The family of this 107-nucleotide RNA sequence from Exiguobacterium sp. AT1b is "SAM riboswitch aptamer (S box leader)". The base pairs follow the family's consensus structure, which is taken from published work. It is one of the family's seed sequences. The organism belongs to Exiguobacterium, within Bacteria.
[Rfam]
RNA sequence: CUCUUAUCAAGAGAGGCUGAGGGACUGGCCCUAUGACGCCCAGCAACCGCGGAGCAAUCCGAAAUGGUGCUAAUUCCAGCAAGGUGAGAAACCUUGACAGAUGAGAG
Numbered sequence: 001c002u003c004u005u006a007u008c009a010a011g012a013g014a015g016g017c018u019g020a021g022g023g024a025c026u027g028g029c030c031c032u033a034u035g036a037c038g039c040c041c042a043g044c045a046a047c048c049g050c051g052g053a054g055c056a057a058u059c060c061g062a063a064a065u066g067g068u069g070c071u072a073a074u075u076c077c078a079g080c081a082a083g084g085u086g087a088g089a090a091a092c093c094u095u096g097a098c099a100g101a102u103g104a105g106a107g
Stems, first nucleotide, its partner, number of pairs: 001107008013041001015040003021031003025079004042071004047067002052060001075099001080096006